Rfam assigns this 362-nucleotide sequence from Listeria monocytogenes to the family "Listeria sRNA rliB". It is annotated as a small RNA. Taxonomically the source falls in Listeria monocytogenes (Bacteria, Bacillati, Bacillota, Listeria). The family's consensus secondary structure was predicted with RNAalifold.

[Rfam]
RNA sequence: AAGAAGAAAAGUUAGUGGGUUUUAGUUACUUAUUUUGAAAUGUAAAUAGCGCAACAGGUGCCAUAUACAAACUGCCUUUUUUUCGUUUUAGUUUACUUAUUGUGAAAUGUAAAUAUGUCCCACUGCUCAAUUUUUAACGGGACUCCAGGUUUUAGUUACUUAUUAUGAAAUGUAAAUUUGGUUCCUUUGGAAAACAACAAUAACGUGUAGUAUUGUUUUAUUCAAUCAUUCAGAAUUGGUAAAUGCAGAAGCAGCAAAAUAACCAAAAGUAAUGACUUUCGUUUUAAUUUCUUAAGAUGAAAUAUAAAUGAAAACCUGUUAUACAUAGGAUUAUCUAUUUCCGUUAUAAUUAUUCCUUGCAA
Numbered sequence: 001a002a003g004a005a006g007a008a009a010a011g012u013u014a015g016u017g018g019g020u021u022u023u024a025g026u027u028a029c030u031u032a033u034u035u036u037g038a039a040a041u042g043u044a045a046a047u048a049g050c051g052c053a054a055c056a057g058g059u060g061c062c063a064u065a066u067a068c069a070a071a072c073u074g075c076c077u078u079u080u081u082u083u084c085g086u087u088u089u090a091g092u093u094u095a096c097u098u099a100u101u102g103u104g105a106a107a108u109g110u111a112a113a114u115a116u117g118u119c120c121c122a123c124u125g126c127u128c129a130a131u132u133u134u135u136a137a138c139g140g141g142a143c144u145c146c147a148g149g150u151u152u153u154a155g156u157u158a159c160u161u162a163u164u165a166u167g168a169a170a171u172g173u174a175a176a177u178u179u180g181g182u183u184c185c186u187u188u189g190g191a192a193a194a195c196a197a198c199a200a201u202a203a204c205g206u207g208u209a210g211u212a213u214u215g216u217u218u219u220a221u222u223c224a225a226u227c228a229u230u231c232a233g234a235a236u237u238g239g240u241a242a243a244u245g246c247a248g249a250a251g252c253a254g255c256a257a258a259a260u261a262a263c264c265a266a267a268a269g270u271a272a273u274g275a276c277u278u279u280c281g282u283u284u285u286a287a288u289u290u291c292u293u294a295a296g297a298u299g300a301a302a303u304a305u306a307a308a309u310g311a312a313a314a315c316c317u318g319u320u321a322u323a324c325a326u327a328g329g330a331u332u333a334u335c336u337a338u339u340u341c342c343g344u345u346a347u348a349a350u351u352a353u354u355c356c357u358u359g360c361a362a
Stems, first nucleotide, its partner, number of pairs: 019041007104341006141179002144176001148173001149171006200322006207315002217308005226300005233293002